The family of this 141-nucleotide RNA sequence from Allobosea sp. LC85 is "Alphaproteobacterial sRNA BjrC1505". Rfam classes the family as a small RNA. The organism belongs to Allobosea, within Bacteria.
[Rfam]
RNA sequence: GCGUUGUUCUUAACCGCUCCUUAACGAUUCCAAAGUAUGAAUCGGAUCAUCCAGUUUCUCUGGAUGUCGAGUGGCUCCUGCCCACUCUGUUUGACGCCUCCCUGUUGACCUUCGAGCCGCCUUCGGGGCGGCUCUUUUUUG
Numbered sequence: 001g002c003g004u005u006g007u008u009c010u011u012a013a014c015c016g017c018u019c020c021u022u023a024a025c026g027a028u029u030c031c032a033a034a035g036u037a038u039g040a041a042u043c044g045g046a047u048c049a050u051c052c053a054g055u056u057u058c059u060c061u062g063g064a065u066g067u068c069g070a071g072u073g074g075c076u077c078c079u080g081c082c083c084a085c086u087c088u089g090u091u092u093g094a095c096g097c098c099u100c101c102c103u104g105u106u107g108a109c110c111u112u113c114g115a116g117c118c119g120c121c122u123u124c125g126g127g128g129c130g131g132c133u134c135u136u137u138u139u140u141g
Base pairs, nucleotide, nucleotide: 002044003043005016006015017039022037023036049065050064051063052062069087070086071085072084073083074082093106094105095104096103114134115133116132117131118130119129120128121127122126